[Rfam]
RNA: Small nucleolar RNA SNORA13
RNA sequence: CGCCUUUGUGUUGCCCGUUCACCUUCGGUCACUAGUGAAUGUGGUGUCAAAAAAGGCAUAAAGUGACGCUUUGCAGCCUUUUCCCUACCCUGGAGUUCGGUGUCUUGGGUGUGGAGGCUGCGUAAGUGACAAAG
Numbered sequence: 001c002g003c004c005u006u007u008g009u010g011u012u013g014c015c016c017g018u019u020c021a022c023c024u025u026c027g028g029u030c031a032c033u034a035g036u037g038a039a040u041g042u043g044g045u046g047u048c049a050a051a052a053a054a055g056g057c058a059u060a061a062a063g064u065g066a067c068g069c070u071u072u073g074c075a076g077c078c079u080u081u082u083c084c085c086u087a088c089c090c091u092g093g094a095g096u097u098c099g100g101u102g103u104c105u106u107g108g109g110u111g112u113g114g115a116g117g118c119u120g121c122g123u124a125a126g127u128g129a130c131a132a133a134g
Stems, first nucleotide, its partner, number of pairs: 002057006009049002012046004016041007068127004072122006083116001085114004089109002093104002